A member of the RNA family "Alphaproteobacterial ar14" from Agrobacterium tumefaciens, 122 nucleotides long.
Rfam classes the family as a small RNA.
For this family Rfam cites "A survey of sRNA families in alpha-proteobacteria" (del Val et al., RNA Biol, 2012).
The base pairs follow the family's consensus structure.
It is one of the family's seed sequences.
Taxonomically the source falls in Agrobacterium tumefaciens complex (Bacteria, Pseudomonadati, Pseudomonadota, Alphaproteobacteria).
[Rfam]
RNA sequence: AAUCAUCGAAGCGACGCACUCCUCCUCCCAGCGUCGCCCGAUUGGACUGACAAUACUCCUCCUCCCAAUUGUCAGUCAGUUUCAAGAACCCGGCGCACCUCCUCCCGCGCCGGGUUUUUGCU
Numbered sequence: 001a002a003u004c005a006u007c008g009a010a011g012c013g014a015c016g017c018a019c020u021c022c023u024c025c026u027c028c029c030a031g032c033g034u035c036g037c038c039c040g041a042u043u044g045g046a047c048u049g050a051c052a053a054u055a056c057u058c059c060u061c062c063u064c065c066c067a068a069u070u071g072u073c074a075g076u077c078a079g080u081u082u083c084a085a086g087a088a089c090c091c092g093g094c095g096c097a098c099c100u101c102c103u104c105c106c107g108c109g110c111c112g113g114g115u116u117u118u119u120g121c122u
Stems, first nucleotide, its partner, number of pairs: 007040002011037007045077010086117011